[Rfam]
RNA sequence: AAAGCAAAUUGUGAAGCGGCGCGCUUCACGUGUAUGAUUGAACCCGCGAGACGUUCUGCAAGCCGGAGCGUGCUCAUUACGGGUUCAUUUUUUG
Numbered sequence: 001a002a003a004g005c006a007a008a009u010u011g012u013g014a015a016g017c018g019g020c021g022c023g024c025u026u027c028a029c030g031u032g033u034a035u036g037a038u039u040g041a042a043c044c045c046g047c048g049a050g051a052c053g054u055u056c057u058g059c060a061a062g063c064c065g066g067a068g069c070g071u072g073c074u075c076a077u078u079a080c081g082g083g084u085u086c087a088u089u090u091u092u093u094g
Base pairs, nucleotide, nucleotide: 010030011029012028013027014026015025016024017023018022039087040086041085042084043083044082045081
sroE RNA: a 94-nucleotide RNA from Tenebrionibacter intestinalis. Rfam's curators write: This family consists of a number of bacterial sroE RNA genes of around 90 bases in length. sroE is found in several Enterobacterial species but its function is unknown. A search with the family's covariance model found it, with a score of 56 bits. It is annotated as a small RNA.